[Rfam]
Nucleotides: 134
Stems, first nucleotide, its partner, number of pairs: 003059003007055001017041007072127004084114001089108007
Number, partner (000 for none) and nucleotide at each position: 001000u002000u003059g004058c005057a006000g007055g008000a009000g010000g011000a012000a013000a014000u015000a016000a017041c018040u019039g020038c021037u022036c023035u024000u025000c026000a027000u028000u029000c030000c031000u032000u033000u034000g035023g036022g037021a038020g039019c040018a041017g042000a043000a044000a045000u046000a047000c048000a049000u050000c051000c052000a053000a054000a055007c056000a057005u058004g059003c060000u061000a062000a063000a064000u065000u066000a067000c068000a069000a070000a071000a072127g073126g074125a075124g076000g077000u078000c079000u080000c081000a082000g083000g084114g085000c086000u087000g088000a089108c090107a091106a092105c093104c094103u095102u096000a097000c098000a099000g100000u101000a102095g103094a104093g105092g106091u107090u108089g109000u110000g111000u112000g113000a114084c115000a116000c117000u118000a119000g120000a121000u122000u123000a124075c125074u126073c127072c128000u129000a130000u131000a132000u133000a134000a